[Rfam]
RNA sequence: AAAUAAAUUUAAUAAGUCAUCCAUAUAAUCUCAAUAAUAAGGAUUGAGAGUUUCUACGAGAAAACCGUAAAUUUUCUGUCUAUGGAUAAUCUUUUGGAAUAU
Numbered sequence: 001a002a003a004u005a006a007a008u009u010u011a012a013u014a015a016g017u018c019a020u021c022c023a024u025a026u027a028a029u030c031u032c033a034a035u036a037a038u039a040a041g042g043a044u045u046g047a048g049a050g051u052u053u054c055u056a057c058g059a060g061a062a063a064a065c066c067g068u069a070a071a072u073u074u075u076c077u078g079u080c081u082a083u084g085g086a087u088a089a090u091c092u093u094u095u096g097g098a099a100u101a102u
Stems, first nucleotide, its partner, number of pairs: 019087007029049007059077006

A member of the RNA family "Purine riboswitch aptamer" from Clostridium niameyense, 102 nucleotides long. A search with the family's covariance model found it, with a score of 82 bits. The family's consensus secondary structure is taken from published work.